Rfam assigns this 145-nucleotide RNA sequence from Planosporangium mesophilum to the family "c-di-AMP riboswitch aptamer (ydaO/yuaA leader)".
[Rfam]
RNA sequence: GGAGCGGACCCGUCGAGUCGUGCUGUUCACGAGCCGGGGACCCACCGCAACUCUGGGGUGAAUCCGCGGGCCGCUGGCCUGCGGUAGGGCGACCUUUCCCGCCCGAAUCCGUCAGCUAACCCGGUAGGCGGCAGCGUAAGGAGAA
Numbered sequence: 001g002g003a004g005c006g007g008a009c010c011c012g013u014c015g016a017g018u019c020g021u022g023c024u025g026u027u028c029a030c031g032a033g034c035c036g037g038g039g040a041c042c043c044a045c046c047g048c049a050a051c052u053c054u055g056g057g058g059u060g061a062a063u064c065c066g067c068g069g070g071c072c073g074c075u076g077g078c079c080u081g082c083g084g085u086a087g088g089g090c091g092a093c094c095u096u097u098c099c100c101g102c103c104c105g106a107a108u109c110c111g112u113c114a115g116c117u118a119a120c121c122c123g124g125u126a127g128g129c130g131g132c133a134g135c136g137u138a139a140g141g142a143g144a145a
Stems, first nucleotide, its partner, number of pairs: 011130004018032005033125006043055002056110003064084009087104004
It scores 87 bits against the family's covariance model.